[Rfam]
RNA: Iron response element I
RNA sequence: CGUUCUUGCUUCAACAGUGUUUGAACGGAGCUUC
Numbered sequence: 001c002g003u004u005c006u007u008g009c010u011u012c013a014a015c016a017g018u019g020u021u022u023g024a025a026c027g028g029a030g031c032u033u034c
Stems, first nucleotide, its partner, number of pairs: 002033001003030004008026001010025005015019001